[Rfam]
RNA sequence: GUUUUACGCAUAAUUAAUCACCUCACUACAUUUUACUGUUCCUAAAGAAUUUGUGACAGGUACAGUAAAACGUAUUGCAAGGUUUAUCAGUUCCUAUAAACAGGUAAAUAACAAUAUAUGCUGCUUGGCGGUAAAAAAAAACCGUUGUCAGCAGUAAUGCUUUUAUACGUCCUUUUAGAUAGAACGACGGUUCAUACAGCCGCCGUUUUAUUUUUGUCCAACGGU
Dot-bracket structure: ((((..(...(.((............(((.((((.((((.(((...(......)...))).)))).)))).))).((..(....)..))......)).)...)..)))).........(((((((.(((((..........))))..).))))))).........................(((((.(((((.....))))).))))).................
Numbered sequence: 001g002u003u004u005u006a007c008g009c010a011u012a013a014u015u016a017a018u019c020a021c022c023u024c025a026c027u028a029c030a031u032u033u034u035a036c037u038g039u040u041c042c043u044a045a046a047g048a049a050u051u052u053g054u055g056a057c058a059g060g061u062a063c064a065g066u067a068a069a070a071c072g073u074a075u076u077g078c079a080a081g082g083u084u085u086a087u088c089a090g091u092u093c094c095u096a097u098a099a100a101c102a103g104g105u106a107a108a109u110a111a112c113a114a115u116a117u118a119u120g121c122u123g124c125u126u127g128g129c130g131g132u133a134a135a136a137a138a139a140a141a142c143c144g145u146u147g148u149c150a151g152c153a154g155u156a157a158u159g160c161u162u163u164u165a166u167a168c169g170u171c172c173u174u175u176u177a178g179a180u181a182g183a184a185c186g187a188c189g190g191u192u193c194a195u196a197c198a199g200c201c202g203c204c205g206u207u208u209u210a211u212u213u214u215u216g217u218c219c220a221a222c223g224g225u
Stems, first nucleotide, its partner, number of pairs: 001109004007103001011099001013097002027074003031070004036065004041060003047054001076089002080085001119156007127148001128145004182208005188202005

Background: A member of the RNA family "Cis-regulator of HTH transcription factor" from Clostridiales bacterium 36_14, 225 nucleotides long. Rfam describes the family as follows. This element was identified by RNA deep sequencing of Clostridioides difficile 630 where it is located immediately upstream of an uncharacterized HTH-type Transcriptional regulator. Homologues are found widely across firmicutes, consistently located 5' of transcriptional regulators of similar size and sequence, which strongly supports a cis-regulatory function. RNA is referred to as CD630_SQ2397 in ref. Rfam's curators put it in the seed alignment. The source organism's lineage runs through Bacteria, Bacillati, Bacillota, Clostridia and Eubacteriales.